[Rfam]
This 81-nucleotide RNA sequence from Lymphocryptovirus gorillinegamma1 belongs to the Rfam family "Epstein-Barr virus stable intronic sequence RNA 1".
Pairs were carried over by alignment from the consensus structure.
It is annotated as a non-coding RNA gene.
For this family Rfam cites "Genome-wide analyses of Epstein-Barr virus reveal conserved RNA structures and a novel stable intronic sequence RNA" (Moss and Steitz, BMC Genomics, 2013).
It is one of the family's seed sequences.
RNA sequence: GUAAGUGGACUUUAAGUUUUUCUGCUAAGCCCAACAUUCCACCACACCCAGGCACACACUACACACACCCGCCCGACUUAG
Numbered sequence: 001g002u003a004a005g006u007g008g009a010c011u012u013u014a015a016g017u018u019u020u021u022c023u024g025c026u027a028a029g030c031c032c033a034a035c036a037u038u039c040c041a042c043c044a045c046a047c048c049c050a051g052g053c054a055c056a057c058a059c060u061a062c063a064c065a066c067a068c069c070c071g072c073c074c075g076a077c078u079u080a081g
Stems, first nucleotide, its partner, number of pairs: 004026006029053003